[Rfam]
Nucleotides: 118
Stems, first nucleotide, its partner, number of pairs: 001079004009039001011038006021031002040066003045062003050056001082107010
Number, partner (000 for none) and nucleotide at each position: 001079g002078c003077u004076c005000c006000u007000g008000a009039g010000a011038g012037g013036c014035a015034g016033c017000g018000c019000g020000a021031a022030g023000c024000a025000c026000c027000u028000g029000g030022c031021u032000g033016g034015c035014u036013g037012c038011c039009c040066g041065g042064c043000a044000a045062c046061c047060u048000c049000u050056a051000c052000u053000c054000c055000g056050u057000c058000u059000g060047a061046g062045g063000u064042g065041c066040u067000c068000c069000a070000g071000g072000g073000g074000a075000a076004g077003a078002g079001c080000c081000g082107g083106c084105u085104c086103c087102c088101a089100c090099g091098g092000c093000g094000c095000c096000c097000g098091c099090c100089g101088u102087g103086g104085g105084g106083g107082c108000a109000a110000g111000g112000a113000c114000g115000g116000a117000g118000u
This 118-nucleotide RNA from Blastococcus sp. CT_GayMR19 belongs to the Rfam family "SAM (S-adenosyl methionine) riboswitch aptamer". It scores 80 bits against the family's covariance model. Taxonomically the source falls in Blastococcus (Bacteria, Actinomycetota, Actinomycetes, Geodermatophilales). The family's consensus secondary structure is taken from published work. Gene Ontology terms of the family: regulation of gene expression and S-adenosylmethionine metabolic process.